[Rfam]
RNA sequence: AUCACUUCUGAACCUUUUGGCUAGGAUAAGUGUAGUAUCCAUUCUUAUCAGUUUAAUAUCUGAUAUAUCCUCUAUCCAAGGACAAGUUAUCAAAUGGAUUUGGAGCAGGGAGAUGAAAUAGGAGCUUGCUCUACCCUCUCCAUAUAUCCCCCUGGUAUUGCAGUCUUCCAGGAACAGUGUAUCCCCU
Numbered sequence: 001a002u003c004a005c006u007u008c009u010g011a012a013c014c015u016u017u018u019g020g021c022u023a024g025g026a027u028a029a030g031u032g033u034a035g036u037a038u039c040c041a042u043u044c045u046u047a048u049c050a051g052u053u054u055a056a057u058a059u060c061u062g063a064u065a066u067a068u069c070c071u072c073u074a075u076c077c078a079a080g081g082a083c084a085a086g087u088u089a090u091c092a093a094a095u096g097g098a099u100u101u102g103g104a105g106c107a108g109g110g111a112g113a114u115g116a117a118a119u120a121g122g123a124g125c126u127u128g129c130u131c132u133a134c135c136c137u138c139u140c141c142a143u144a145u146a147u148c149c150c151c152c153u154g155g156u157a158u159u160g161c162a163g164u165c166u167u168c169c170a171g172g173a174a175c176a177g178u179g180u181a182u183c184c185c186c187u
Base pairs, nucleotide, nucleotide: 007026008025009024011022013020014019046065047064048063049062050061051060068082069081070080071079109141110140111139112138113137115135121132122131123130124129144180145179146178147177151172152171153170154169155168
U2 spliceosomal RNA: a 187-nucleotide RNA sequence from Marmota monax. The base pairs follow the family's consensus structure, which is taken from published work. Taxonomically the source falls in Marmota (Eukaryota, Craniata, Mammalia, Marmotini). It is annotated as a spliceosomal small nuclear RNA.